[Rfam]
RNA sequence: CGAGCUAACUCUCUCUAAGGAACUCGGCAAAAUGGCCCCGUAACUUCGGGAGAAGGGGUGCCCCCUGAUGGGGGGUCGCAGUGAAGAGGCCCAGGCGACUGUUUACCAAAAACACAGGUCUCCGCCAAGUCGCAAGACGCUGUAUGGAGGCUGACGCCUGCCCAGUGCCGGAAGGUUAAGGAAGUCGGUCAGCCCUGCGGGGUAAAGCUGGCGACCGAAGCCCCGGUGAACGGCGGCCGUAACUAUAACGGUCCUAAGGUAGCGAAAUUCCUUGUCGGGUAAGUUCCGACCCGCACGAAAGGCGUAACGAUCUGGGCGCUGUCUCGGAGAGAGGCUCG
Numbered sequence: 001c002g003a004g005c006u007a008a009c010u011c012u013c014u015c016u017a018a019g020g021a022a023c024u025c026g027g028c029a030a031a032a033u034g035g036c037c038c039c040g041u042a043a044c045u046u047c048g049g050g051a052g053a054a055g056g057g058g059u060g061c062c063c064c065c066u067g068a069u070g071g072g073g074g075g076u077c078g079c080a081g082u083g084a085a086g087a088g089g090c091c092c093a094g095g096c097g098a099c100u101g102u103u104u105a106c107c108a109a110a111a112a113c114a115c116a117g118g119u120c121u122c123c124g125c126c127a128a129g130u131c132g133c134a135a136g137a138c139g140c141u142g143u144a145u146g147g148a149g150g151c152u153g154a155c156g157c158c159u160g161c162c163c164a165g166u167g168c169c170g171g172a173a174g175g176u177u178a179a180g181g182a183a184g185u186c187g188g189u190c191a192g193c194c195c196u197g198c199g200g201g202g203u204a205a206a207g208c209u210g211g212c213g214a215c216c217g218a219a220g221c222c223c224c225g226g227u228g229a230a231c232g233g234c235g236g237c238c239g240u241a242a243c244u245a246u247a248a249c250g251g252u253c254c255u256a257a258g259g260u261a262g263c264g265a266a267a268u269u270c271c272u273u274g275u276c277g278g279g280u281a282a283g284u285u286c287c288g289a290c291c292c293g294c295a296c297g298a299a300a301g302g303c304g305u306a307a308c309g310a311u312c313u314g315g316g317c318g319c320u321g322u323c324u325c326g327g328a329g330a331g332a333g334g335c336u337c338g
Stems, first nucleotide, its partner, number of pairs: 001338004009333008018324003035059005044049001060076006077081001089317007096309002100114003117152008125142001129138003155304004160234003165231002167227005174222003180216002184212006192203004235253006254258001264291001274290006

Bacterial large subunit ribosomal RNA: a 338-nucleotide part of an RNA from Oxynema aestuarii.
Rfam links the family to the GO terms ribosome and structural constituent of ribosome.
The source organism's lineage runs through Bacteria, Oscillatoriophycideae, Oscillatoriaceae, Oxynema and Oxynema aestuarii.
Rfam 15.1 lists 51,934 matches to the family in 10,816 species.
The family is grouped with related families in Rfam's "LSU clan".